Description: Rfam assigns this 232-nucleotide RNA sequence from Trifolium subterraneum to the family "MIR2655 microRNA precursor family".
RNA sequence: CCUUUAUCUUUUAAAAGUUUCAAGUUGAUCCCUUAUCUUUAUUUUAGGUUUCAAGUUGGUCCCUUCCGUCAAUUUUUUAACUAUUUCCGUUAAAUUUGGACACGUGACACACUUGAACAGAUGACAUGUGUCCAAAUUUAACGGUAACAGUAAAAAAAUUGACAGAAAGGGACCAACUUGAAACCUAAAAUAAAGAUAAGGGACCAACUUGAAACUAUUAAAAGAUAAGGGA
Numbered sequence: 001c002c003u004u005u006a007u008c009u010u011u012u013a014a015a016a017g018u019u020u021c022a023a024g025u026u027g028a029u030c031c032c033u034u035a036u037c038u039u040u041a042u043u044u045u046a047g048g049u050u051u052c053a054a055g056u057u058g059g060u061c062c063c064u065u066c067c068g069u070c071a072a073u074u075u076u077u078u079a080a081c082u083a084u085u086u087c088c089g090u091u092a093a094a095u096u097u098g099g100a101c102a103c104g105u106g107a108c109a110c111a112c113u114u115g116a117a118c119a120g121a122u123g124a125c126a127u128g129u130g131u132c133c134a135a136a137u138u139u140a141a142c143g144g145u146a147a148c149a150g151u152a153a154a155a156a157a158a159u160u161g162a163c164a165g166a167a168a169g170g171g172a173c174c175a176a177c178u179u180g181a182a183a184c185c186u187a188a189a190a191u192a193a194a195g196a197u198a199a200g201g202g203a204c205c206a207a208c209u210u211g212a213a214a215c216u217a218u219u220a221a222a223a224g225a226u227a228a229g230g231g232a
Base pairs, nucleotide, nucleotide: 002230003229004228005227006226007225008224023209024208025207027205029203031201032200033199034198035197036196037195038194039193040192041191042190043189045187046186047185
The family has 25 seed sequences and 892 matches in Rfam 15.1.
The organism belongs to Trifolium, within Eukaryota.